A member of the RNA family "c-di-AMP riboswitch aptamer (ydaO/yuaA leader)" from Streptomyces coryli, 155 nucleotides long. The base pairs follow the family's consensus structure. Its family is annotated with regulation of gene expression and cyclic-di-AMP binding in the Gene Ontology. Lineage of the source: Bacteria > Bacillati > Actinomycetes > Kitasatosporales > Streptomyces.

RNA sequence: GCACAACAACCGCCAGGGCAGGAGCGGGGGACCCACCUUCGCCGUUCCGUCCCCGGACGGCUUGGGGUGAAGCCGCCCGUCACCAGUGCAGCGCGGCCGGGCUAUCUCCAGCCCGAACCCGACAGCUCACCUCGCAGGCGUAGGGAGAAGGAGAG
Numbered sequence: 001g002c003a004c005a006a007c008a009a010c011c012g013c014c015a016g017g018g019c020a021g022g023a024g025c026g027g028g029g030g031a032c033c034c035a036c037c038u039u040c041g042c043c044g045u046u047c048c049g050u051c052c053c054c055g056g057a058c059g060g061c062u063u064g065g066g067g068u069g070a071a072g073c074c075g076c077c078c079g080u081c082a083c084c085a086g087u088g089c090a091g092c093g094c095g096g097c098c099g100g101g102c103u104a105u106c107u108c109c110a111g112c113c114c115g116a117a118c119c120c121g122a123c124a125g126c127u128c129a130c131c132u133c134g135c136a137g138g139c140g141u142a143g144g145g146a147g148a149a150g151g152a153g154a155g
Base pairs, nucleotide, nucleotide: 011140012139013138014137024135025134026133027132028131029130034064035063065120066119067118073096074095075094076093099114100113101112102111